The family of this 96-nucleotide RNA from Beta vulgaris is "Small nucleolar RNA Z161/Z228". Gene Ontology terms of the family: nucleolus and RNA processing. A reference for the family is Chen et al. (2003), "The high diversity of snoRNAs in plants: identification and comparative study of 120 snoRNA genes from Oryza sativa", Nucleic Acids Res. Lineage of the source: Eukaryota > Euphyllophyta > Amaranthaceae > Betoideae > Beta vulgaris. Pairs were carried over by alignment from the consensus structure, which was predicted with PFOLD. By type it is a C/D-box small nucleolar RNA.

RNA sequence: GGUCAAGUGAUGAUUUGGAUUAAUAUUCUCACGACGGUCGUCUGAGGCACUAAAUCAGUGUCCUUUUGAUGUUAAUAAUCCAUCUUUCUGAUGAUC
Dot-bracket structure: (.(............................................(((.......)))................................).).
Numbered sequence: 001g002g003u004c005a006a007g008u009g010a011u012g013a014u015u016u017g018g019a020u021u022a023a024u025a026u027u028c029u030c031a032c033g034a035c036g037g038u039c040g041u042c043u044g045a046g047g048c049a050c051u052a053a054a055u056c057a058g059u060g061u062c063c064u065u066u067u068g069a070u071g072u073u074a075a076u077a078a079u080c081c082a083u084c085u086u087u088c089u090g091a092u093g094a095u096c
Stems, first nucleotide, its partner, number of pairs: 001095001003093001048060003